A member of the RNA family "Molybdenum/Tungsten riboswitch aptamer (Moco RNA motif)" from Aminomonas paucivorans, 121 nucleotides long. The organism belongs to Aminomonas paucivorans, within Bacteria. It scores 65 bits against the family's covariance model.
RNA sequence: CCCUAAUCCAUCCUCCGAGCUGCGGUGCCUAAAGACGUGAGGUCCAGGGUUCGCAGCCGUCUAGGGUGUCCCUGGAAACGGGGGUGCCUCCCUUCCGGAAAGGAGGACGGCAAUCCAUGCC
Numbered sequence: 001c002c003c004u005a006a007u008c009c010a011u012c013c014u015c016c017g018a019g020c021u022g023c024g025g026u027g028c029c030u031a032a033a034g035a036c037g038u039g040a041g042g043u044c045c046a047g048g049g050u051u052c053g054c055a056g057c058c059g060u061c062u063a064g065g066g067u068g069u070c071c072c073u074g075g076a077a078a079c080g081g082g083g084g085u086g087c088c089u090c091c092c093u094u095c096c097g098g099a100a101a102g103g104a105g106g107a108c109g110g111c112a113a114u115c116c117a118u119g120c121c
Base pairs, nucleotide, nucleotide: 011107012106013105014104015103016102019057020056021055022054023053024052025051027050028049029048034044035043036042064089065088066087067086068085069084070083071082072081073080074079090098091097
The base pairs follow the family's consensus structure, which is taken from published work.